[Rfam]
A member of the RNA family "Mammalian CPEB3 ribozyme" from Crocodylus porosus, 78 nucleotides long. The family's consensus secondary structure is taken from published work. It scores 38 bits against the family's covariance model. NCBI's taxonomy places the organism under Eukaryota, Opisthokonta, Archosauria, Crocodylidae, Crocodylus.

RNA sequence: GGUUGCAAAUUUGAGGCCAUAGAAAAAGUACUCAUGGUGUGGCCCUGUCAGAUUUCAACAAAAUAUGCAGAUUCUGCU
Numbered sequence: 001g002g003u004u005g006c007a008a009a010u011u012u013g014a015g016g017c018c019a020u021a022g023a024a025a026a027a028g029u030a031c032u033c034a035u036g037g038u039g040u041g042g043c044c045c046u047g048u049c050a051g052a053u054u055u056c057a058a059c060a061a062a063a064u065a066u067g068c069a070g071a072u073u074c075u076g077c078u
Stems, first nucleotide, its partner, number of pairs: 013045001015044004021078002024075001026073002028040003049067002052064004